A member of the RNA family "Group I catalytic intron" from Pseudothermotoga hypogea, 698 nucleotides long. It scores 72 bits against the family's covariance model. The source organism's lineage runs through Bacteria, Thermotogati, Thermotogota, Thermotogaceae and Pseudothermotoga hypogea. Rfam 15.1 lists 5,602 matches to the family in 1,395 species. Group I catalytic introns are large self-splicing ribozymes.
RNA sequence: GUCCUAAGGUAGCUGUGCUGCCUGCCUGCAGGGUAACCUGCAGGGCAAUACCCGGCUGUAUGCGGGAAAACCCUUAGAGCUCUUCCUACUUGGAGAAGGAUUUCUCCAAGUAAAAAUGGAAGAGAUUGGGCAACCCGCAGGAAACCCCGAAAGGGGGAUCCUCAGAGACUGUACGCCGGGCAUCCAGCUUUCCAGUGAGGUGCAGUGUGGUGGAACUUCAUCCAGAGUGGGUCGUCGGAUUUGUCGAUGGAGAAGGAUGUUUCUAUGUAGGUGUGAACAAGAACAAGACGAUGAGCGUGGGCUAUCAGGUGUUGCCUGAGUUCAGAGUCGUUCAGCACCAGCGAGACAUCCAGGUUCUUUAUGCGCUCAAGCGCUUCUUUGGAUGUGGUACGGUCAGAAGAAACCACGAAGACAGAUACGAGCUCAGGAUAAGGAAAAUCGAGUGCUUGAAAAAGGUCGUUGAAUUUUUCCAAAAGCACCCACUCAAAACGAAGAAGAAUGUUGAUUUCAGGAAAUUUAGCAAGAUCAUCAAGAUGAUGGAUGAAGGAAGGCACCUCACAAAGGAAGGCCUGAUAGAAAUCGUUCAGAUAGCUCUCGAGAUGAACACGGGAAAACGCGAUAAUCUGAGGCGAAUACUGGACGAUCUGACAGGGAAAGCUGGAUGAAGAUACAGUCCACCCUUGGUUCGAAAGACCAAG
Numbered sequence: 001g002u003c004c005u006a007a008g009g010u011a012g013c014u015g016u017g018c019u020g021c022c023u024g025c026c027u028g029c030a031g032g033g034u035a036a037c038c039u040g041c042a043g044g045g046c047a048a049u050a051c052c053c054g055g056c057u058g059u060a061u062g063c064g065g066g067a068a069a070a071c072c073c074u075u076a077g078a079g080c081u082c083u084u085c086c087u088a089c090u091u092g093g094a095g096a097a098g099g100a101u102u103u104c105u106c107c108a109a110g111u112a113a114a115a116a117u118g119g120a121a122g123a124g125a126u127u128g129g130g131c132a133a134c135c136c137g138c139a140g141g142a143a144a145c146c147c148c149g150a151a152a153g154g155g156g157g158a159u160c161c162u163c164a165g166a167g168a169c170u171g172u173a174c175g176c177c178g179g180g181c182a183u184c185c186a187g188c189u190u191u192c193c194a195g196u197g198a199g200g201u202g203c204a205g206u207g208u209g210g211u212g213g214a215a216c217u218u219c220a221u222c223c224a225g226a227g228u229g230g231g232u233c234g235u236c237g238g239a240u241u242u243g244u245c246g247a248u249g250g251a252g253a254a255g256g257a258u259g260u261u262u263c264u265a266u267g268u269a270g271g272u273g274u275g276a277a278c279a280a281g282a283a284c285a286a287g288a289c290g291a292u293g294a295g296c297g298u299g300g301g302c303u304a305u306c307a308g309g310u311g312u313u314g315c316c317u318g319a320g321u322u323c324a325g326a327g328u329c330g331u332u333c334a335g336c337a338c339c340a341g342c343g344a345g346a347c348a349u350c351c352a353g354g355u356u357c358u359u360u361a362u363g364c365g366c367u368c369a370a371g372c373g374c375u376u377c378u379u380u381g382g383a384u385g386u387g388g389u390a391c392g393g394u395c396a397g398a399a400g401a402a403a404c405c406a407c408g409a410a411g412a413c414a415g416a417u418a419c420g421a422g423c424u425c426a427g428g429a430u431a432a433g434g435a436a437a438a439u440c441g442a443g444u445g446c447u448u449g450a451a452a453a454a455g456g457u458c459g460u461u462g463a464a465u466u467u468u469u470c471c472a473a474a475a476g477c478a479c480c481c482a483c484u485c486a487a488a489a490c491g492a493a494g495a496a497g498a499a500u501g502u503u504g505a506u507u508u509c510a511g512g513a514a515a516u517u518u519a520g521c522a523a524g525a526u527c528a529u530c531a532a533g534a535u536g537a538u539g540g541a542u543g544a545a546g547g548a549a550g551g552c553a554c555c556u557c558a559c560a561a562a563g564g565a566a567g568g569c570c571u572g573a574u575a576g577a578a579a580u581c582g583u584u585c586a587g588a589u590a591g592c593u594c595u596c597g598a599g600a601u602g603a604a605c606a607c608g609g610g611a612a613a614a615c616g617c618g619a620u621a622a623u624c625u626g627a628g629g630c631g632a633a634u635a636c637u638g639g640a641c642g643a644u645c646u647g648a649c650a651g652g653g654a655a656a657g658c659u660g661g662a663u664g665a666a667g668a669u670a671c672a673g674u675c676c677a678c679c680c681u682u683g684g685u686u687c688g689a690a691a692g693a694c695c696a697a698g
Base pairs, nucleotide, nucleotide: 007023008022009021010020011019012018013017029040030039031038051180052179053178054177056175061139062138063137064136065135066134071130072129073128140161141160145156146155147154148153165676167675168674169673170672171671183662184661185660186659187658188657189656190655191654192653193652682696683695684694686693687692